RNA sequence: GUUGCGGCGCCCUCUAAUUCGCUUGGUGCAGGUCGGGACCGUGUAUGUAUAUAUGUUGCCGGCGCGUAGAUGUAUGUGGUCCCGCCUUGCAUCAAUUGAAUCGGAGGUUGCCGCGAGU
Dot-bracket structure: ............((..((((..((((((((((.(((((.((...................................)).))))).))))))))))..))))..)).............
Numbered sequence: 001g002u003u004g005c006g007g008c009g010c011c012c013u014c015u016a017a018u019u020c021g022c023u024u025g026g027u028g029c030a031g032g033u034c035g036g037g038a039c040c041g042u043g044u045a046u047g048u049a050u051a052u053a054u055g056u057u058g059c060c061g062g063c064g065c066g067u068a069g070a071u072g073u074a075u076g077u078g079g080u081c082c083c084g085c086c087u088u089g090c091a092u093c094a095a096u097u098g099a100a101u102c103g104g105a106g107g108u109u110g111c112c113g114c115g116a117g118u
Stems, first nucleotide, its partner, number of pairs: 013105002017101004023095010034084005040078002
Notes
The family of this 118-nucleotide RNA sequence from Daucus carota is "MIR168 microRNA precursor family". On this family, see Reinhart et al., Genes Dev 2002: "MicroRNAs in plants". The match comes from Rfam's covariance-model search (84 bits). Its family is annotated with RISC complex and miRNA-mediated post-transcriptional gene silencing in the Gene Ontology. Taxonomically the source falls in Daucus carota (Eukaryota, Tracheophyta, Pentapetalae, campanulids).